[Rfam]
RNA sequence: UAGGAUAUAAAUUGUAAGUCGCUUUGGAUAAAAGCGUCUGCGAAAUAAAUAAAC
Numbered sequence: 001u002a003g004g005a006u007a008u009a010a011a012u013u014g015u016a017a018g019u020c021g022c023u024u025u026g027g028a029u030a031a032a033a034g035c036g037u038c039u040g041c042g043a044a045a046u047a048a049a050u051a052a053a054c
Stems, first nucleotide, its partner, number of pairs: 013043001014041003020036006
The family of this 54-nucleotide sequence from Nothobranchius furzeri is "UnaL2 LINE 3' element". Taxonomically the source falls in Nothobranchius (Eukaryota, Teleostei, Ctenosquamata, Cyprinodontiformes). Rfam's curators write: The eel long interspersed element (LINE) UnaL2 and its partner short interspersed element (SINE) share a conserved 3' tail containing a stem-loop that is critical for their retrotransposition. Presumably, the first step of retrotransposition is the recognition of their 3' tails by UnaL2-encoded reverse transcriptase. Rfam classes the family as a cis-regulatory element. Rfam 15.1 lists 493,311 matches to the family in 99 species.